[Rfam]
A member of the RNA family "tRNA" from Streptomyces sp. F-3, 74 nucleotides long. From the family's description: Transfer RNA (tRNA) molecules are approximately 80 nucleotides in length. A search with the family's covariance model found it, with a score of 79 bits. By type it is a transfer RNA.

RNA sequence: GGGGCUAUAGCUCAGUUGGUUAGAGCGCAUCCCUGAUAAGGAUGAGGUCACUGGUUCAAAUCCAGUUAGCCCCA
Numbered sequence: 001g002g003g004g005c006u007a008u009a010g011c012u013c014a015g016u017u018g019g020u021u022a023g024a025g026c027g028c029a030u031c032c033c034u035g036a037u038a039a040g041g042a043u044g045a046g047g048u049c050a051c052u053g054g055u056u057c058a059a060a061u062c063c064a065g066u067u068a069g070c071c072c073c074a
Stems, first nucleotide, its partner, number of pairs: 001073007010026004028044005050066005